[Rfam]
RNA sequence: ACGAUCCCUGCGGGAGAGACCGGCCGUUUCCGCAUCGUGCGGAUCCUGCGCCGGCGCCGAAGGCGCAACCGCCCCGGAACCGCUCAGGCAAAAGGGCCGCAGGGGGACG
Dot-bracket structure: .....((((((((......((((...........................)))).(((((..(((...((.....))...))))).))).......)))))))).....
RNA: Glycine riboswitch aptamer